Alphaproteobacterial sRNA ar35: a 146-nucleotide RNA sequence from Aliirhizobium cellulosilyticum. The literature on the family includes a 2012 paper in RNA Biol by del Val et al., "A survey of sRNA families in alpha-proteobacteria".

RNA sequence: AUCGGCAUUGCUGAUGAGCGCUUAACCCAUGUGCUGCUCGCAAUUGCCGCCGCUGCUUUCAGCUUUUGACCACGGAUGUACUGGCACUGGUGGGUAAAGCGGCGAUGAGAGAGGUCGGAGCAACAUUGCCCCGGCCUUUUUUCGUU
Numbered sequence: 001a002u003c004g005g006c007a008u009u010g011c012u013g014a015u016g017a018g019c020g021c022u023u024a025a026c027c028c029a030u031g032u033g034c035u036g037c038u039c040g041c042a043a044u045u046g047c048c049g050c051c052g053c054u055g056c057u058u059u060c061a062g063c064u065u066u067u068g069a070c071c072a073c074g075g076a077u078g079u080a081c082u083g084g085c086a087c088u089g090g091u092g093g094g095u096a097a098a099g100c101g102g103c104g105a106u107g108a109g110a111g112a113g114g115u116c117g118g119a120g121c122a123a124c125a126u127u128g129c130c131c132c133g134g135c136c137u138u139u140u141u142u143c144g145u146u
Base pairs, nucleotide, nucleotide: 003049004048005047006046007044008043009042016039017038018037019036020035052103053102054101055100056099057098058097062091063090064089067086068085070084071083072082105145106144107143108142109141110139111138112137113136114135115134116133117132118131120129121128122127
The family has 13 seed sequences and 266 matches in Rfam 15.1. The source organism's lineage runs through Bacteria, Pseudomonadota, Alphaproteobacteria, Hyphomicrobiales and Aliirhizobium. The family's RNA type in Rfam is small RNA. The match comes from Rfam's covariance-model search (133 bits). Pairs were carried over by alignment from the consensus structure.